[Rfam]
RNA sequence: GGUAGUAGCAAAUAUUCAAAUGAGAACUUUGAAGACUGAAGUGGAGAAAGGUUCCAUGUGAACAGCAAUUGGACAUGGGUGAAUCGAUCCUAAGAGAUGGGGUAAUCCUGUUUGAAGAGUGCAAUGUGCACUACCCAUCAAAAGGGAAAAGGGUUAAGAUUCCCUUAUUUGGACAAGGCGGCUGGCGGUAACGCAAGCGAGCCCGGAGACAUCGGCAUCGGCCCUGGGAAGAGUUCUCUUUUCUUUUUAACAACCCGAAGGCCCUGGAAUCGAAUCAUUCGGAGAUAGGGCUCAGAGGUUGGUAAAGCACCGCACUUCUCGCGGUGUCCGGCGCGCCGUUGACGAUCCUUGAAAAUCUGGGGGAGCAUCUCCGAUCUUGCCAAGUCGUACUCAUAACCGCAUCAGGUCUCCAAGGUGAACAGCCUCUAGUCGA
Numbered sequence: 001g002g003u004a005g006u007a008g009c010a011a012a013u014a015u016u017c018a019a020a021u022g023a024g025a026a027c028u029u030u031g032a033a034g035a036c037u038g039a040a041g042u043g044g045a046g047a048a049a050g051g052u053u054c055c056a057u058g059u060g061a062a063c064a065g066c067a068a069u070u071g072g073a074c075a076u077g078g079g080u081g082a083a084u085c086g087a088u089c090c091u092a093a094g095a096g097a098u099g100g101g102g103u104a105a106u107c108c109u110g111u112u113u114g115a116a117g118a119g120u121g122c123a124a125u126g127u128g129c130a131c132u133a134c135c136c137a138u139c140a141a142a143a144g145g146g147a148a149a150a151g152g153g154u155u156a157a158g159a160u161u162c163c164c165u166u167a168u169u170u171g172g173a174c175a176a177g178g179c180g181g182c183u184g185g186c187g188g189u190a191a192c193g194c195a196a197g198c199g200a201g202c203c204c205g206g207a208g209a210c211a212u213c214g215g216c217a218u219c220g221g222c223c224c225u226g227g228g229a230a231g232a233g234u235u236c237u238c239u240u241u242u243c244u245u246u247u248u249a250a251c252a253a254c255c256c257g258a259a260g261g262c263c264c265u266g267g268a269a270u271c272g273a274a275u276c277a278u279u280c281g282g283a284g285a286u287a288g289g290g291c292u293c294a295g296a297g298g299u300u301g302g303u304a305a306a307g308c309a310c311c312g313c314a315c316u317u318c319u320c321g322c323g324g325u326g327u328c329c330g331g332c333g334c335g336c337c338g339u340u341g342a343c344g345a346u347c348c349u350u351g352a353a354a355a356u357c358u359g360g361g362g363g364a365g366c367a368u369c370u371c372c373g374a375u376c377u378u379g380c381c382a383a384g385u386c387g388u389a390c391u392c393a394u395a396a397c398c399g400c401a402u403c404a405g406g407u408c409u410c411c412a413a414g415g416u417g418a419a420c421a422g423c424c425u426c427u428a429g430u431c432g433a
Stems, first nucleotide, its partner, number of pairs: 015033006034431004043411004049391002054078006063071002085387003089145002094139002096112003100109003119131003149166005169383004174379005179373002185194003202361006211346004216341002219338004224331003227247006251301005261291006270282004308326006397406002413425004
The record is a 433-nucleotide part of an RNA from Volvox reticuliferus, which matches "Eukaryotic large subunit ribosomal RNA" in Rfam. The match comes from Rfam's covariance-model search (3306 bits).